[Rfam]
RNA: mir-34 microRNA precursor family
RNA sequence: GAUCUGUAGGCAGUGUAGUUAGAUGAUUGUCUGAAUUCAGCCUACAAUCACUAACCACACUACCGACUGAAU
Numbered sequence: 001g002a003u004c005u006g007u008a009g010g011c012a013g014u015g016u017a018g019u020u021a022g023a024u025g026a027u028u029g030u031c032u033g034a035a036u037u038c039a040g041c042c043u044a045c046a047a048u049c050a051c052u053a054a055c056c057a058c059a060c061u062a063c064c065g066a067c068u069g070a071a072u
Stems, first nucleotide, its partner, number of pairs: 003070002006067001009064002012061005018055005024050007